About this RNA: Pyrrolysine insertion sequence mttB: a 100-nucleotide sequence from Peptococcaceae bacterium CEB3. The base pairs follow the family's consensus structure, which was predicted with CMfinder. The source organism's lineage runs through Bacteria, Bacillati, Bacillota, Clostridia and Peptococcaceae. Rfam links the family to the GO term pyrrolysine incorporation. For this family Rfam cites "Effects of using coding potential, sequence conservation and mRNA structure conservation for predicting pyrroly-sine containing genes" (Theil Have et al., BMC Bioinformatics, 2013).
[Rfam]
RNA sequence: UUGACCGACAGCAAAUUACCCGACGCCCAAGCGGCGUCGGAGAGCAUGAUGAAUAUGCUGACCACCGGUUUGGCCGGAGUGGAUGUGAUUCUUCACGCGG
Numbered sequence: 001u002u003g004a005c006c007g008a009c010a011g012c013a014a015a016u017u018a019c020c021c022g023a024c025g026c027c028c029a030a031g032c033g034g035c036g037u038c039g040g041a042g043a044g045c046a047u048g049a050u051g052a053a054u055a056u057g058c059u060g061a062c063c064a065c066c067g068g069u070u071u072g073g074c075c076g077g078a079g080u081g082g083a084u085g086u087g088a089u090u091c092u093u094c095a096c097g098c099g100g
Stems, first nucleotide, its partner, number of pairs: 003012001025032001033062001035060001077098001079096002
The family's RNA type in Rfam is cis-regulatory element.